This 62-nucleotide RNA belongs to the Rfam family "Gag/pol translational readthrough site".
RNA sequence: UAGGGAGGUCAGGGCCAGGAGCCCCCCCCUGAGCCCAGGAUAACUCUUGAAGUUGGGGGGCA
Dot-bracket structure: .......[[[.[[[[[[[[..((((((]]]].]]]]..]]].............))))))..